[Rfam]
The family of this 273-nucleotide sequence from Lupinus angustifolius is "Early nodulin 40".
The family's RNA type in Rfam is non-coding RNA gene.
Pairs were carried over by alignment from the consensus structure, which is taken from published work.
Gene Ontology term of the family: nodulation.
It scores 172 bits against the family's covariance model.
RNA sequence: AUGGAUCUGUUUUGGCAAAAAUCCUUCCAUGGUUCUUGAAGAAGCAUGGAUUAGAAGUGAGAGGGUCCUCACCCCUCACACUACACCACUUCCAAUAGUUUGUUUGGGCUUAGCUAUUGGCUUCUCUAAUCACCAAGAGAUAUGUAUACAAAAAAACAUUCUCUAUGACUAGCAGAUGCAUAUAAGCAUUCUCCAAUGGAGCAAAGGCUUUCUUUGGCUACAGCCUCAGCAAACCGGCAAGUCACAAAAAGGCAUGGACUCCAUUAGGGUCCU
Numbered sequence: 001a002u003g004g005a006u007c008u009g010u011u012u013u014g015g016c017a018a019a020a021a022u023c024c025u026u027c028c029a030u031g032g033u034u035c036u037u038g039a040a041g042a043a044g045c046a047u048g049g050a051u052u053a054g055a056a057g058u059g060a061g062a063g064g065g066u067c068c069u070c071a072c073c074c075c076u077c078a079c080a081c082u083a084c085a086c087c088a089c090u091u092c093c094a095a096u097a098g099u100u101u102g103u104u105u106g107g108g109c110u111u112a113g114c115u116a117u118u119g120g121c122u123u124c125u126c127u128a129a130u131c132a133c134c135a136a137g138a139g140a141u142a143u144g145u146a147u148a149c150a151a152a153a154a155a156a157c158a159u160u161c162u163c164u165a166u167g168a169c170u171a172g173c174a175g176a177u178g179c180a181u182a183u184a185a186g187c188a189u190u191c192u193c194c195a196a197u198g199g200a201g202c203a204a205a206g207g208c209u210u211u212c213u214u215u216g217g218c219u220a221c222a223g224c225c226u227c228a229g230c231a232a233a234c235c236g237g238c239a240a241g242u243c244a245c246a247a248a249a250a251g252g253c254a255u256g257g258a259c260u261c262c263a264u265u266a267g268g269g270u271c272c273u
Stems, first nucleotide, its partner, number of pairs: 057086002098234006117222001257271005